This 36-nucleotide sequence from Cnephaeus nilssonii belongs to the Rfam family "Iron response element I". By type it is a cis-regulatory element. Its family is annotated with response to iron ion in the Gene Ontology. A search with the family's covariance model found it, with a score of 44 bits.

RNA sequence: CGGUCUCUUGCUUCAACAGUGUUUGGAUGGGGACAG
Numbered sequence: 001c002g003g004u005c006u007c008u009u010g011c012u013u014c015a016a017c018a019g020u021g022u023u024u025g026g027a028u029g030g031g032g033a034c035a036g
Stems, first nucleotide, its partner, number of pairs: 001036001003034006010028001012027005017021001